[Rfam]
MIR2118 microRNA precursor family: a 169-nucleotide RNA sequence from Triticum aestivum. The source organism's lineage runs through Eukaryota, Streptophyta, Embryophyta, Poaceae and Triticum. On this family, see Johnson et al., Genome Res 2009: "Clusters and superclusters of phased small RNAs in the developing inflorescence of rice". Pairs were carried over by alignment from the consensus structure, which was predicted with RNAalifold. It scores 107 bits against the family's covariance model.
RNA sequence: AUCAGGAAUAGGAAGAAAAUGAGCAUCUAAGAGCAUUAGGCAUGGGAACAUUGAGGAAGGCCUAAACUAGUGUGUCCCUGUCCAACUAGGUUCGAACAUUUGUUUUGGAAUUUUCCAGAUGCCUCUCAUGCCUAAUGUUGUUAGGUGUUCCUUCCUCUCCCUUAUAACC
Numbered sequence: 001a002u003c004a005g006g007a008a009u010a011g012g013a014a015g016a017a018a019a020u021g022a023g024c025a026u027c028u029a030a031g032a033g034c035a036u037u038a039g040g041c042a043u044g045g046g047a048a049c050a051u052u053g054a055g056g057a058a059g060g061c062c063u064a065a066a067c068u069a070g071u072g073u074g075u076c077c078c079u080g081u082c083c084a085a086c087u088a089g090g091u092u093c094g095a096a097c098a099u100u101u102g103u104u105u106u107g108g109a110a111u112u113u114u115c116c117a118g119a120u121g122c123c124u125c126u127c128a129u130g131c132c133u134a135a136u137g138u139u140g141u142u143a144g145g146u147g148u149u150c151c152u153u154c155c156u157c158u159c160c161c162u163u164a165u166a167a168c169c
Base pairs, nucleotide, nucleotide: 011158012157013156015154016153017152021150022149023148026145027144028143029142030141032139033138034137035136037134038133039132040131041130042129043128044127045126046125047124049121050120051119055116056115057114058113059112060111